[Rfam]
RNA sequence: GGGGGUAUAGCUCAGUGGUAGAGCAAUUGACUGCAGAUCAAAAGGUCUCUGGUUCAAAGCCAGAUGCCCCCU
Numbered sequence: 001g002g003g004g005g006u007a008u009a010g011c012u013c014a015g016u017g018g019u020a021g022a023g024c025a026a027u028u029g030a031c032u033g034c035a036g037a038u039c040a041a042a043a044g045g046u047c048u049c050u051g052g053u054u055c056a057a058a059g060c061c062a063g064a065u066g067c068c069c070c071c072u
Stems, first nucleotide, its partner, number of pairs: 001071007010024004027041004048064005